Rfam assigns this 178-nucleotide sequence from Mesobacillus boroniphilus to the family "Lysine riboswitch aptamer". The source organism's lineage runs through Bacteria, Bacillati, Bacilli, Bacillaceae and Mesobacillus boroniphilus. It scores 109 bits against the family's covariance model.
[Rfam]
RNA sequence: UGGUGAGGUAGAGGAGCGAAUAACAAGAGUAGUCCAUCGGAGAUAGACAAUCGUUGAUGGUGGGGGAAAGGGUUGUUUGCCGAAGCGUAAUCAGGGUCAGACUGAUUACUGCUGGGAUGCUUUCUGAACAAGGAGCAGACUGUCAUGCUGGGUUUGUGCAUGGAGAACUACUGAUCGA
Numbered sequence: 001u002g003g004u005g006a007g008g009u010a011g012a013g014g015a016g017c018g019a020a021u022a023a024c025a026a027g028a029g030u031a032g033u034c035c036a037u038c039g040g041a042g043a044u045a046g047a048c049a050a051u052c053g054u055u056g057a058u059g060g061u062g063g064g065g066g067a068a069a070g071g072g073u074u075g076u077u078u079g080c081c082g083a084a085g086c087g088u089a090a091u092c093a094g095g096g097u098c099a100g101a102c103u104g105a106u107u108a109c110u111g112c113u114g115g116g117a118u119g120c121u122u123u124c125u126g127a128a129c130a131a132g133g134a135g136c137a138g139a140c141u142g143u144c145a146u147g148c149u150g151g152g153u154u155u156g157u158g159c160a161u162g163g164a165g166a167a168c169u170a171c172u173g174a175u176c177g178a
Base pairs, nucleotide, nucleotide: 007172008171009170010169011168016080017079018078019077020076021075022074023073024072033064034063035062036061037060038059039058084113085112086111087110088108089107090106091105092104093103094102114141115140118137119136120135121134122133123132143163144162145161146160147159148158